[Rfam]
Annotation:
The record is a 115-nucleotide RNA from Gossypium anomalum, which matches "MIR408 microRNA precursor family" in Rfam. On this family, see Sunkar and Zhu, Plant Cell 2004: "Novel and stress-regulated microRNAs and other small RNAs from Arabidopsis".
Nucleotides: 115
Base pairs, nucleotide, nucleotide: 017098018097020095021094022093023092024091025090026089028087029086030085031084033082035080036079037078038077039076040075044071045070
Number, partner (000 for none) and nucleotide at each position: 001000u002000g003000g004000g005000a006000g007000a008000g009000a010000c011000a012000g013000a014000c015000a016000a017098a018097g019000a020095c021094a022093g023092g024091g025090a026089a027000c028087a029086g030085g031084c032000u033082g034000a035080g036079c037078a038077u039076g040075g041000a042000u043000g044071g045070a046000u047000c048000u049000a050000c051000c052000a053000a054000c055000u056000g057000u058000u059000u060000c061000u062000g063000u064000u065000g066000u067000u068000u069000c070045u071044c072000c073000g074000c075040c076039c077038a078037u079036g080035c081000a082033c083000u084031g085030c086029c087028u088000c089026u090025u091024c092023c093022c094021u095020g096000g097018c098017u099000c100000u101000g102000c103000c104000u105000c106000c107000u108000c109000c110000a111000u112000u113000u114000u115000u
Taxonomically the source falls in Gossypium (Eukaryota, Tracheophyta, Pentapetalae, malvids).